RNA sequence: GCAAGCGACCGGCUUGGGAGAGCCGCCGCUUGCGGCGAAACGGACCGGCUUGGGAGAGCCCGUCGGUUUCUGAAUCAGGGGAGAUUGACCGAUGGAGAACACGCUUCUCGUCGGAUUGUCGCGGCAGAUUUCGCUCG
Numbered sequence: 001g002c003a004a005g006c007g008a009c010c011g012g013c014u015u016g017g018g019a020g021a022g023c024c025g026c027c028g029c030u031u032g033c034g035g036c037g038a039a040a041c042g043g044a045c046c047g048g049c050u051u052g053g054g055a056g057a058g059c060c061c062g063u064c065g066g067u068u069u070c071u072g073a074a075u076c077a078g079g080g081g082a083g084a085u086u087g088a089c090c091g092a093u094g095g096a097g098a099a100c101a102c103g104c105u106u107c108u109c110g111u112c113g114g115a116u117u118g119u120c121g122c123g124g125c126a127g128a129u130u131u132c133g134c135u136c137g
Stems, first nucleotide, its partner, number of pairs: 001033007010025006037070005047060005089114005095109005

The record is a 137-nucleotide RNA sequence from Afipia sp. P52-10, which matches "flg-Rhizobiales RNA" in Rfam.
A search with the family's covariance model found it, with a score of 109 bits.
The family's consensus secondary structure is taken from published work.